[Rfam]
RNA sequence: GGAUCGGGAGCUUGCCGGUGGGACGGUGGGCAUGAAUUGGUCCGAACCCGCUUGUUUCAAUGUGUGGCCAUGUCGGUGCCCCGACGACAUGUGCG
Numbered sequence: 001g002g003a004u005c006g007g008g009a010g011c012u013u014g015c016c017g018g019u020g021g022g023a024c025g026g027u028g029g030g031c032a033u034g035a036a037u038u039g040g041u042c043c044g045a046a047c048c049c050g051c052u053u054g055u056u057u058c059a060a061u062g063u064g065u066g067g068c069c070a071u072g073u074c075g076g077u078g079c080c081c082c083g084a085c086g087a088c089a090u091g092u093g094c095g
Stems, first nucleotide, its partner, number of pairs: 001043005010031008067094002071089005
Dot-bracket structure: (((((....((((((((......)))))))).......))))).......................((..(((((.........)))))...)).